[Rfam]
RNA sequence: GGCUGGGCCAAGAGCAGUGGUGUUUACACCUAAUUGAUAACAACUAGUUUCAGACUUCUUUGUUCCUUCUCCACUCCCACUGCUUCACUUGACUAGCCUUAA
Numbered sequence: 001g002g003c004u005g006g007g008c009c010a011a012g013a014g015c016a017g018u019g020g021u022g023u024u025u026a027c028a029c030c031u032a033a034u035u036g037a038u039a040a041c042a043a044c045u046a047g048u049u050u051c052a053g054a055c056u057u058c059u060u061u062g063u064u065c066c067u068u069c070u071c072c073a074c075u076c077c078c079a080c081u082g083c084u085u086c087a088c089u090u091g092a093c094u095a096g097c098c099u100u101a102a
Stems, first nucleotide, its partner, number of pairs: 001098006008091001010090002014086001016081005022076001032064003036060002